Background: The record is a 157-nucleotide RNA from Ferrovibrio terrae, which matches "FMN riboswitch aptamer (RFN element)" in Rfam.

RNA sequence: CCACGUUCUCAGGGCGGGGUGAAAGUCCCCACCGGCGGUAAGUGUCGCAAGGCACGAGCCCGCGAGCGCCUCACGGCUUUCAUUCGGCCAUGAGGGUCCAGCAGAUCCGGUUUAAUGCCGGAGCCGACGGUCAUAGUCCGGAUGGAAGAGAGCGGUU
Numbered sequence: 001c002c003a004c005g006u007u008c009u010c011a012g013g014g015c016g017g018g019g020u021g022a023a024a025g026u027c028c029c030c031a032c033c034g035g036c037g038g039u040a041a042g043u044g045u046c047g048c049a050a051g052g053c054a055c056g057a058g059c060c061c062g063c064g065a066g067c068g069c070c071u072c073a074c075g076g077c078u079u080u081c082a083u084u085c086g087g088c089c090a091u092g093a094g095g096g097u098c099c100a101g102c103a104g105a106u107c108c109g110g111u112u113u114a115a116u117g118c119c120g121g122a123g124c125c126g127a128c129g130g131u132c133a134u135a136g137u138c139c140g141g142a143u144g145g146a147a148g149a150g151a152g153c154g155g156u157u
Stems, first nucleotide, its partner, number of pairs: 004154007017029003031137002033126002035063004058124002066102002106122005128140003

The organism belongs to Ferrovibrio, within Bacteria. A search with the family's covariance model found it, with a score of 110 bits. The base pairs follow the family's consensus structure, which is taken from published work.